The family of this 171-nucleotide sequence from Nocardia panacis is "M-box riboswitch aptamer (ykoK leader)". Gene Ontology terms of the family: regulation of gene expression and response to magnesium ion. Pairs were carried over by alignment from the consensus structure. M-box riboswitch, also know as ykoK leader is described as a metaloregulatory RNA that sense divalent metals and function as a genetic control element of genes related to divalent metal transport in bacteria. For this family Rfam cites "Structure and mechanism of a metal-sensing regulatory RNA" (Dann CE 3rd et al., Cell, 2007).
[Rfam]
RNA sequence: GGUGCUCAUCGUUCGCUGAGGCUCCUGCACGGAUACAGGCCAGCGACCCCGAACGUCGAGAGACGCCCCGGGUCAGGACAGGUCUCCCCGGCUUAAGGGGUGACCCCGAUUGGCUCCCGAAUUCCUCGGGUUCACGCCGUGCAGUGCCAAAGGUCUUACGAGGAGAGCGGC
Numbered sequence: 001g002g003u004g005c006u007c008a009u010c011g012u013u014c015g016c017u018g019a020g021g022c023u024c025c026u027g028c029a030c031g032g033a034u035a036c037a038g039g040c041c042a043g044c045g046a047c048c049c050c051g052a053a054c055g056u057c058g059a060g061a062g063a064c065g066c067c068c069c070g071g072g073u074c075a076g077g078a079c080a081g082g083u084c085u086c087c088c089c090g091g092c093u094u095a096a097g098g099g100g101u102g103a104c105c106c107c108g109a110u111u112g113g114c115u116c117c118c119g120a121a122u123u124c125c126u127c128g129g130g131u132u133c134a135c136g137c138c139g140u141g142c143a144g145u146g147c148c149a150a151a152g153g154u155c156u157u158a159c160g161a162g163g164a165g166a167g168c169g170g171c
Base pairs, nucleotide, nucleotide: 005167006166007165009163010162011159012158013096015154016153017152020148021147022146025144026143027142028141029140030139031138032137039114040113041112042111043110045074046073047072048071049070054065055064056063057062081105082104083103084102087099088098089097116130117129118128